[Rfam]
RNA sequence: AAGUAGUGUGACAUGCCCGUUCGUGUUUAACUCUGAUUAUUUAUUAUUAUUAUUAAGUUUGGGAUAACGGGGUGUUACAUAUGU
Numbered sequence: 001a002a003g004u005a006g007u008g009u010g011a012c013a014u015g016c017c018c019g020u021u022c023g024u025g026u027u028u029a030a031c032u033c034u035g036a037u038u039a040u041u042u043a044u045u046a047u048u049a050u051u052a053u054u055a056a057g058u059u060u061g062g063g064a065u066a067a068c069g070g071g072g073u074g075u076u077a078c079a080u081a082u083g084u
Stems, first nucleotide, its partner, number of pairs: 002084001006080009016071006
Notes
This 84-nucleotide RNA from Medicago truncatula belongs to the Rfam family "MIR2617 microRNA precursor family". Rfam links the family to the GO terms miRNA-mediated post-transcriptional gene silencing and RISC complex. The base pairs follow the family's consensus structure, which was predicted with RNAalifold. Taxonomically the source falls in Medicago (Eukaryota, Tracheophyta, Magnoliopsida, fabids).